RNA sequence: GAGUGAAAUGAUGGUAUACCAUCUUUCGGGACUGACCUGAAAAAAUGGAGACAAACUUUUUUGAAUGCUGAUCGCUC
Numbered sequence: 001g002a003g004u005g006a007a008a009u010g011a012u013g014g015u016a017u018a019c020c021a022u023c024u025u026u027c028g029g030g031a032c033u034g035a036c037c038u039g040a041a042a043a044a045a046u047g048g049a050g051a052c053a054a055a056c057u058u059u060u061u062u063g064a065a066u067g068c069u070g071a072u073c074g075c076u077c
Stems, first nucleotide, its partner, number of pairs: 001077006
The family of this 77-nucleotide sequence from Acipenser ruthenus is "Small nucleolar RNA SNORD2". Gene Ontology terms of the family: RNA processing and nucleolus. Rfam 15.1 lists 1,116 matches to the family in 660 species. On this family, see Zhou et al., Gene 2004: "Identification of a novel box C/D snoRNA from mouse nucleolar cDNA library". The organism belongs to Acipenser, within Eukaryota. It is annotated as a C/D-box small nucleolar RNA.